[Rfam]
RNA sequence: UUCUCUGAUGAUGAGUUUUACAAAUUGACCUUUUAUCUCCUGAGAAUAAUUUUGUGCUGAAUCCAUUUGGAGACCUGAACUGAAGAGAA
Dot-bracket structure: ..((((.............................................................................))))..
Shown here is an 89-nucleotide RNA from Phtheirospermum japonicum, a member of the family "Small nucleolar RNA Z159/U59". The family's RNA type in Rfam is C/D-box small nucleolar RNA. The family is grouped with related families in Rfam's "SNORD59 clan". A reference for the family is Chen et al. (2003), "The high diversity of snoRNAs in plants: identification and comparative study of 120 snoRNA genes from Oryza sativa", Nucleic Acids Res. Pairs were carried over by alignment from the consensus structure, which was predicted with PFOLD. Gene Ontology terms of the family: RNA processing and nucleolus. It scores 49 bits against the family's covariance model.